[Rfam]
This 179-nucleotide sequence from Streptomyces tardus belongs to the Rfam family "c-di-AMP riboswitch aptamer (ydaO/yuaA leader)".
The organism belongs to Streptomyces, within Bacteria.
This family represents a conserved RNA structure found upstream of the ydaO and yuaA genes in Bacillus subtilis and related genes in other bacteria. The ydaO/yuaA element is thought to act as a genetic 'off' switch for the ydaO and yuaA genes in its native state. It is believed that the element may be triggered during osmotic shock leading to activation of ydaO, a predicted amino acid transporter gene, and members of the yuaA-yubG operon which code for KtrA and KtrB K+ transporters.
The match comes from Rfam's covariance-model search (71 bits).

RNA sequence: CGAGGGAAAGCGCCCAAACGAAGUGGCAGGAGCGGGGGAACCAGGUAAGUGCCGCGCCGCAGUUCGCUGCGUCCGGCUUGGGGUGAAGCCACACCCGGUACGUACUGGUACCGGUCGGUGGCCGGGCAUCUCCAGCCCGAAUCCGACAGCUCACCUCGUAGGCGUGGGAGAGGAAACUU
Numbered sequence: 001c002g003a004g005g006g007a008a009a010g011c012g013c014c015c016a017a018a019c020g021a022a023g024u025g026g027c028a029g030g031a032g033c034g035g036g037g038g039a040a041c042c043a044g045g046u047a048a049g050u051g052c053c054g055c056g057c058c059g060c061a062g063u064u065c066g067c068u069g070c071g072u073c074c075g076g077c078u079u080g081g082g083g084u085g086a087a088g089c090c091a092c093a094c095c096c097g098g099u100a101c102g103u104a105c106u107g108g109u110a111c112c113g114g115u116c117g118g119u120g121g122c123c124g125g126g127c128a129u130c131u132c133c134a135g136c137c138c139g140a141a142u143c144c145g146a147c148a149g150c151u152c153a154c155c156u157c158g159u160a161g162g163c164g165u166g167g168g169a170g171a172g173g174a175a176a177c178u179u
Stems, first nucleotide, its partner, number of pairs: 011164004019030001032159006042080005081144003089121004124138004